Overview
The family of this 350-nucleotide RNA sequence from Cedecea neteri is "isrL Hfq binding RNA". The match comes from Rfam's covariance-model search (113 bits). By type it is a small RNA. The base pairs follow the family's consensus structure, which was predicted with RNAalifold.
RNA sequence: UUUGGCGACGUUUAUCUGUUCGGACUGACCGUAAAGUUUGCCGAUGGCUUCACGAAUGCCGGGAUGCCAACUGACCGAGCGGUUGACCGCCUCGUUCAGGGUUAAGAUUCCGGGCGCAGGGGCAUUGAGCGGGAGGGCGGUUGGGCCAUCGAGUGAGGGCAGCUCUUGUUGCUGAGCGAGGCCCUGAGUCGUAAUAGAAGCAGGUUUGUCGUCGGCCCAGGCCUGGAGUGAAAACAGACCGCAAGCCAGCCAUAACGCAACAGGCUGUAAUUUUCCCAUGUUCUUUCCCUAAUAAAUGGCACUGCGUUUUUGUCUUAUUCCCCGGGCGUCUGCGCGCCCGGGGAUUUUUC
Numbered sequence: 001u002u003u004g005g006c007g008a009c010g011u012u013u014a015u016c017u018g019u020u021c022g023g024a025c026u027g028a029c030c031g032u033a034a035a036g037u038u039u040g041c042c043g044a045u046g047g048c049u050u051c052a053c054g055a056a057u058g059c060c061g062g063g064a065u066g067c068c069a070a071c072u073g074a075c076c077g078a079g080c081g082g083u084u085g086a087c088c089g090c091c092u093c094g095u096u097c098a099g100g101g102u103u104a105a106g107a108u109u110c111c112g113g114g115c116g117c118a119g120g121g122g123c124a125u126u127g128a129g130c131g132g133g134a135g136g137g138c139g140g141u142u143g144g145g146c147c148a149u150c151g152a153g154u155g156a157g158g159g160c161a162g163c164u165c166u167u168g169u170u171g172c173u174g175a176g177c178g179a180g181g182c183c184c185u186g187a188g189u190c191g192u193a194a195u196a197g198a199a200g201c202a203g204g205u206u207u208g209u210c211g212u213c214g215g216c217c218c219a220g221g222c223c224u225g226g227a228g229u230g231a232a233a234a235c236a237g238a239c240c241g242c243a244a245g246c247c248a249g250c251c252a253u254a255a256c257g258c259a260a261c262a263g264g265c266u267g268u269a270a271u272u273u274u275c276c277c278a279u280g281u282u283c284u285u286u287c288c289c290u291a292a293u294a295a296a297u298g299g300c301a302c303u304g305c306g307u308u309u310u311u312g313u314c315u316u317a318u319u320c321c322c323c324g325g326g327c328g329u330c331u332g333c334g335c336g337c338c339c340g341g342g343g344a345u346u347u348u349u350c
Stems, first nucleotide, its partner, number of pairs: 003269001008192002012188002017035001019033001021031001036057005043051002059186001061184003065180001067132002071099002074096001077092001079090003102128004106123001108121003140177003144173003148170001150168002195232001197229001201225004207219001240264001245258002319344011
Dot-bracket structure: ..(....((..((...(.(.(.........).).)(((((..((.....)).))))).(.(((.(.((..((.(..(.(((......))).)...).))..(((((.(((........))).).))))..)).......(((.(((.(.((...............)).)))).)))..).))).)))..))..(.(...((((..(...........)..))))...)..).......(....((..........)).....)....).................................................(((((((((((....)))))))))))......
On this family, see Padalon-Brauch et al., Nucleic Acids Res 2008: "Small RNAs encoded within genetic islands of Salmonella typhimurium show host-induced expression and role in virulence".